[Rfam]
RNA sequence: AUUAUUUAUGAUACUCUGCAAUGGGAUGGGAUCCGAAGCCCCCUCGAGGGUUAAUACAGGCUCUCCCAUCUCCUAUUCCGACACGUCCUCGCCGUGCAGAGUGGUAACGUGUGUCACCACAUAUCCAAGCUUGGGUACACGGGCUUGAUCCAACCCCUUGGGCGGAUGGUGGCAUAUGGCAAACCAGGAGGGA
Numbered sequence: 001a002u003u004a005u006u007u008a009u010g011a012u013a014c015u016c017u018g019c020a021a022u023g024g025g026a027u028g029g030g031a032u033c034c035g036a037a038g039c040c041c042c043c044u045c046g047a048g049g050g051u052u053a054a055u056a057c058a059g060g061c062u063c064u065c066c067c068a069u070c071u072c073c074u075a076u077u078c079c080g081a082c083a084c085g086u087c088c089u090c091g092c093c094g095u096g097c098a099g100a101g102u103g104g105u106a107a108c109g110u111g112u113g114u115c116a117c118c119a120c121a122u123a124u125c126c127a128a129g130c131u132u133g134g135g136u137a138c139a140c141g142g143g144c145u146u147g148a149u150c151c152a153a154c155c156c157c158u159u160g161g162g163c164g165g166a167u168g169g170u171g172g173c174a175u176a177u178g179g180c181a182a183a184c185c186a187g188g189a190g191g192g193a
Stems, first nucleotide, its partner, number of pairs: 011102002014099002017096001024073002026069006033060002077193002079187001083095003087104002108178006115171004123167004131153006155162002
RNA: drz-agam-2-2 ribozyme